The record is a 109-nucleotide RNA, which matches "Plastid-psbA-1 3UTR RNA" in Rfam. For this family Rfam cites "Retrograde signaling in plants: A critical review focusing on the GUN pathway and beyond" (Richter et al., Plant Commun, 2023). Rfam's curators put it in the seed alignment.
RNA sequence: UUGAAGCCCCAUCUACAAAUGGAUAAUUCUUUCUUAGUGGAGACGAGUUUUUGAAAAUAACGGAGCAAUACCGACUCUCUUGCAAUAGAGUCGGUAUUGCUCCGUUAUU
Numbered sequence: 001u002u003g004a005a006g007c008c009c010c011a012u013c014u015a016c017a018a019a020u021g022g023a024u025a026a027u028u029c030u031u032u033c034u035u036a037g038u039g040g041a042g043a044c045g046a047g048u049u050u051u052u053g054a055a056a057a058u059a060a061c062g063g064a065g066c067a068a069u070a071c072c073g074a075c076u077c078u079c080u081u082g083c084a085a086u087a088g089a090g091u092c093g094g095u096a097u098u099g100c101u102c103c104g105u106u107a108u109u
Base pairs, nucleotide, nucleotide: 009022010021011020012019059106060105061104062103063102064101065100066099067098068097069096070095071094073092074091075090077088078087
Rfam describes the family as follows. Plastid psbA-1 is a non-coding RNA (ncRNA) present in plastids. It was identified in inverted repeat sequences in the 3 prime untranslate region (3UTR) of photosystem II quinone-binding protein (psbA).